[Rfam]
RNA: TPP riboswitch aptamer (THI element)
Organism: Domibacillus mangrovi
RNA sequence: AAUCACCGCUGGGGGUGCUCAUAAUGGAGCUGAGAGAGGCGAACUGCUUUAACCCUUAUAACUUGAACCGGAUAAUGCCGGCGUAGGGAAGAGGUGUCUUGAAUCG
Numbered sequence: 001a002a003u004c005a006c007c008g009c010u011g012g013g014g015g016u017g018c019u020c021a022u023a024a025u026g027g028a029g030c031u032g033a034g035a036g037a038g039g040c041g042a043a044c045u046g047c048u049u050u051a052a053c054c055c056u057u058a059u060a061a062c063u064u065g066a067a068c069c070g071g072a073u074a075a076u077g078c079c080g081g082c083g084u085a086g087g088g089a090a091g092a093g094g095u096g097u098c099u100u101g102a103a104u105c106g
Base pairs, nucleotide, nucleotide: 006094007093009091010090011056012055013054014053017030018029019028020027037049038048039047040046041045062087063086064085065084068081069080070079071078